Notes:
A member of the RNA family "tRNA" from Candidatus Riesia pediculischaeffi, 83 nucleotides long. Gene Ontology term of the family: triplet codon-amino acid adaptor activity. Rfam classes the family as a transfer RNA.

[Rfam]
RNA sequence: GCGGGAAUGGCGGAAUGGGAGACGCACUAGACUUAGGAUCUAGCACCAGUUUGGUCUUGCGAGUUCGAGUCUCGCUUCCCGCA
Numbered sequence: 001g002c003g004g005g006a007a008u009g010g011c012g013g014a015a016u017g018g019g020a021g022a023c024g025c026a027c028u029a030g031a032c033u034u035a036g037g038a039u040c041u042a043g044c045a046c047c048a049g050u051u052u053g054g055u056c057u058u059g060c061g062a063g064u065u066c067g068a069g070u071c072u073c074g075c076u077u078c079c080c081g082c083a
Stems, first nucleotide, its partner, number of pairs: 001082007010025003027043005059075005
NCBI's taxonomy places the organism under Bacteria, Pseudomonadota, Gammaproteobacteria, Enterobacteriaceae, Candidatus Riesia.
It scores 58 bits against the family's covariance model.